[Rfam]
RNA sequence: CCCCUUUAAAUCCACGCUGAUUGGGCGUAUAUUGGCGAUGUUCCUUCGGGAACUAUGGUAAUAAACGCGCAUGUAAUAAGCGGAUCGGACCCGGGGGCGGUACCCGGCGACUCCACCAAAUAUACCGUUCAUUUGGCGGUUGGCAUGGGGUCGAAAUAGGAUCGACGGACGUCUAAAGAUGUUUGCUUUUGCCCGGUGCGGUGUCGCUGUUAUCGACCCACUUAAGCUAGUUGCAAAUGACAACAAAGCACCGAUGGCUGUAGCUGCGUAAGCAGUUCCAAAUAUUGGAAAACUUAGGGAUUUAUUUGGAUUUAUUUGUCCGCUUCCAACAUUCCCGAUU
Numbered sequence: 001c002c003c004c005u006u007u008a009a010a011u012c013c014a015c016g017c018u019g020a021u022u023g024g025g026c027g028u029a030u031a032u033u034g035g036c037g038a039u040g041u042u043c044c045u046u047c048g049g050g051a052a053c054u055a056u057g058g059u060a061a062u063a064a065a066c067g068c069g070c071a072u073g074u075a076a077u078a079a080g081c082g083g084a085u086c087g088g089a090c091c092c093g094g095g096g097g098c099g100g101u102a103c104c105c106g107g108c109g110a111c112u113c114c115a116c117c118a119a120a121u122a123u124a125c126c127g128u129u130c131a132u133u134u135g136g137c138g139g140u141u142g143g144c145a146u147g148g149g150g151u152c153g154a155a156a157u158a159g160g161a162u163c164g165a166c167g168g169a170c171g172u173c174u175a176a177a178g179a180u181g182u183u184u185g186c187u188u189u190u191g192c193c194c195g196g197u198g199c200g201g202u203g204u205c206g207c208u209g210u211u212a213u214c215g216a217c218c219c220a221c222u223u224a225a226g227c228u229a230g231u232u233g234c235a236a237a238u239g240a241c242a243a244c245a246a247a248g249c250a251c252c253g254a255u256g257g258c259u260g261u262a263g264c265u266g267c268g269u270a271a272g273c274a275g276u277u278c279c280a281a282a283u284a285u286u287g288g289a290a291a292a293c294u295u296a297g298g299g300a301u302u303u304a305u306u307u308g309g310a311u312u313u314a315u316u317u318g319u320c321c322g323c324u325u326c327c328a329a330c331a332u333u334c335c336c337g338a339u340u
Stems, first nucleotide, its partner, number of pairs: 040053005057193005067186002069182004081171002085168003091107005108153007194209004200219002203217003322335001
Dot-bracket structure: .......................................(((((....)))))...(((((.....((((((........((..(((...(((((.......)))))(((((((................................)))))))............))).)).......))))..))..)))))((((..[[.[[[)))).....]]]]]......................................................................................................(............).....
Record summary
This 340-nucleotide RNA from Paramylibacter kogurei belongs to the Rfam family "Alphaproteobacteria transfer-messenger RNA". Bacterial tmRNA, also known as 10Sa RNA or SsrA, is named for its dual tRNA and mRNA-like properties. Taxonomically the source falls in Paramylibacter (Bacteria, Pseudomonadati, Alphaproteobacteria, Paracoccaceae). A reference for the family is Williams and Bartel (1996), "Phylogenetic analysis of tmRNA secondary structure", RNA.